[Rfam]
RNA sequence: GACCUCACCAAUGCUGCGUUUCUUUGCUCACACACAGACACCUUGCGCCCUUGUGGCUGCUCGGUCCGUCCUUUCCUUGCAAAUGAGAAAUUCGGAGUAAUCUUCACCCCACACUGCCACCUUCACGGCUUGCCGAGGAGCUCUGACACAGCUGCCCGUGAGGGCCUGGCGUGACACUCACGCUUGCAUCGGGCAUCAGAAAACUCAGGGCCCACUCUACCUCUACGCUUGCGUGGUUGUGGAUGUGGUGUCCCUAUGGGAGCCUAUGCGAAGAUUGUGUGCAUACGUGCGACACUUUAGUGCAAUACGCAGCGUGCUGGACUUUGAGUAGCGGACACUAUCUGGGCAACUGGCUGGUGCGAGUGAAAGAGGGAAGGCAUCAUUCGAUUCCGAUUACUCUGGUGAGGAC
Number, nucleotide and partner (000 for none) at each position: 001g409002a000003c407004c406005u000006c000007a000008c402009c401010a400011a000012u000013g313014c312015u311016g310017c309018g308019u307020u000021u000022c000023u083024u082025u081026g080027c000028u000029c000030a000031c000032a000033c000034a000035c000036a000037g070038a069039c068040a000041c000042c000043u000044u000045g000046c000047g000048c000049c000050c000051u000052u000053g000054u000055g000056g000057c000058u000059g000060c000061u000062c000063g000064g000065u000066c000067c000068g039069u038070c037071c000072u000073u000074u000075c000076c000077u000078u000079g000080c026081a025082a024083a023084u000085g000086a000087g000088a000089a000090a000091u000092u000093c392094g391095g390096a389097g388098u000099a000100a000101u000102c273103u272104u271105c270106a000107c000108c000109c000110c000111a000112c000113a000114c000115u000116g000117c000118c000119a000120c000121c000122u000123u000124c000125a000126c000127g000128g000129c000130u000131u000132g000133c000134c000135g000136a000137g000138g000139a000140g000141c000142u000143c000144u000145g000146a000147c000148a000149c000150a000151g000152c000153u000154g165155c164156c163157c162158g000159u000160g000161a000162g157163g156164g155165c154166c000167u000168g184169g183170c182171g181172u180173g000174a000175c000176a000177c000178u000179c000180a172181c171182g170183c169184u168185u000186g269187c268188a267189u266190c000191g264192g263193g000194c000195a000196u000197c000198a000199g000200a000201a000202a000203a000204c000205u000206c000207a000208g255209g254210g253211c000212c000213c000214a000215c000216u000217c000218u000219a000220c000221c000222u000223c000224u000225a000226c000227g000228c000229u000230u000231g000232c000233g000234u000235g000236g000237u000238u000239g000240u000241g000242g000243a000244u000245g000246u000247g000248g000249u000250g000251u000252c000253c210254c209255u208256a000257u000258g000259g000260g000261a000262g000263c192264c191265u000266a189267u188268g187269c186270g105271a104272a103273g102274a000275u000276u000277g000278u000279g000280u000281g000282c000283a000284u000285a000286c000287g000288u000289g000290c000291g000292a000293c000294a000295c000296u000297u000298u000299a000300g000301u000302g000303c000304a000305a000306u000307a019308c018309g017310c016311a015312g014313c013314g380315u379316g378317c377318u376319g000320g000321a000322c000323u000324u000325u000326g000327a000328g000329u000330a000331g000332c000333g000334g000335a000336c000337a000338c000339u000340a000341u000342c000343u000344g000345g000346g000347c000348a000349a000350c000351u000352g000353g000354c000355u000356g000357g000358u000359g000360c000361g000362a000363g000364u000365g000366a000367a000368a000369g000370a000371g000372g000373g000374a000375a000376g318377g317378c316379a315380u314381c000382a000383u000384u000385c000386g000387a000388u097389u096390c095391c094392g093393a000394u000395u000396a000397c000398u000399c000400u010401g009402g008403u000404g000405a000406g004407g003408a000409c001